RNA sequence: GCUUUGCUAGCUCAGUCGGUAGAGCGUCAGUCUCAUAUUGUGAGAUAUCUGAAGGUCGACAGUUCGAACCUGCCGCAGAGCA
Numbered sequence: 001g002c003u004u005u006g007c008u009a010g011c012u013c014a015g016u017c018g019g020u021a022g023a024g025c026g027u028c029a030g031u032c033u034c035a036u037a038u039u040g041u042g043a044g045a046u047a048u049c050u051g052a053a054g055g056u057c058g059a060c061a062g063u064u065c066g067a068a069c070c071u072g073c074c075g076c077a078g079a080g081c082a
Stems, first nucleotide, its partner, number of pairs: 001081007010025004027052004058074001060072003
This 82-nucleotide RNA from Waltiozyma pijperi belongs to the Rfam family "tRNA". Rfam links the family to the GO term triplet codon-amino acid adaptor activity. Transfer RNA (tRNA) molecules are approximately 80 nucleotides in length. Lineage of the source: Eukaryota > Fungi > Dikarya > Saccharomycetes > Waltiozyma. The match comes from Rfam's covariance-model search (49 bits).